[Rfam]
Leucine operon leader: a 150-nucleotide sequence. A reference for the family is Kolter and Yanofsky (1982), "Attenuation in amino acid biosynthetic operons", Annu Rev Genet. Gene Ontology term of the family: leucine biosynthetic process. It scores 112 bits against the family's covariance model.
Nucleotides: 150
Base pairs, nucleotide, nucleotide: 004110006108008107009106010105012103013102014101015100016098017097026088028086029085030084031083032082033081049077050076051075052074053073057071058070059069060068122147123146124145125144126143127142128141129140130139131138132137
Number, partner (000 for none) and nucleotide at each position: 001000c002000u003000g004110g005000a006108g007000c008107a009106c010105g011000a012103u013102u014101c015100a016098u017097g018000a019000u020000u021000c022000g023000c024000a025000c026088c027000c028086u029085u030084c031083g032082u033081u034000u035000u036000c037000a038000c039000c040000g041000g042000u043000c044000u045000a046000c047000u048000a049077c050076u051075a052074c053073u054000a055000a056000a057071c058070g059069c060068a061000u062000u063000c064000a065000c066000u067000g068060u069059g070058c071057g072000c073053g074052g075051u076050a077049g078000a079000c080000u081033g082032g083031c084030g085029g086028g087000c088026g089000a090000a091000a092000u093000u094000c095000a096000g097017c098016g099000u100015u101014g102013a103012a104000u105010c106009g107008u108006c109000a110004c111000c112000a113000g114000u115000a116000a117000c118000a119000c120000u121000a122147a123146a124145a125144a126143c127142c128141c129140g130139c131138g132137c133000c134000a135000c136000u137132g138131c139130g140129c141128g142127g143126g144125u145124u146123u147122u148000u149000u150000u